[Rfam]
RNA: Streptomyces RNA 3920
RNA sequence: GAUAGGUCUGUGCCGUCAGCGUGAUUGGACACUGACGCUGAGUCAACUAGCCUUGGUCGCACGGUUCUUCGUGUGUAGACGCGUCCGACGGAGGGCCGGGGCGGCUCGAGCCAAGAGGGGGGAGGCUCGAGCCGCUCUUC
Numbered sequence: 001g002a003u004a005g006g007u008c009u010g011u012g013c014c015g016u017c018a019g020c021g022u023g024a025u026u027g028g029a030c031a032c033u034g035a036c037g038c039u040g041a042g043u044c045a046a047c048u049a050g051c052c053u054u055g056g057u058c059g060c061a062c063g064g065u066u067c068u069u070c071g072u073g074u075g076u077a078g079a080c081g082c083g084u085c086c087g088a089c090g091g092a093g094g095g096c097c098g099g100g101g102c103g104g105c106u107c108g109a110g111c112c113a114a115g116a117g118g119g120g121g122g123a124g125g126c127u128c129g130a131g132c133c134g135c136u137c138u139u140c
Base pairs, nucleotide, nucleotide: 001014003012004011015051016050018048021032022031023030033045034044035043036042058075059074060073061072062071063070064069076098100136101135102134103133104132105131106130107129108128109127110126111125112124